[Rfam]
RNA: mraW RNA
Organism: Tessaracoccus bendigoensis
RNA sequence: UGUGAACUCCACCCGGUGAUACCCGGCCGGCCCGGCCCUGACUUCACUUCCCCGAUGUCAGGUCCGAUCCGGAAGGGAAUCUCCGGGUGACAAGCGGUGAUA
Numbered sequence: 001u002g003u004g005a006a007c008u009c010c011a012c013c014c015g016g017u018g019a020u021a022c023c024c025g026g027c028c029g030g031c032c033c034g035g036c037c038c039u040g041a042c043u044u045c046a047c048u049u050c051c052c053c054g055a056u057g058u059c060a061g062g063u064c065c066g067a068u069c070c071g072g073a074a075g076g077g078a079a080u081c082u083c084c085g086g087g088u089g090a091c092a093a094g095c096g097g098u099g100a101u102a
Base pairs, nucleotide, nucleotide: 010089011088012087013086014085015084016083018081019080022077023076024075027072028071029070030069033066034065035064037062038061039060040059041058042057044055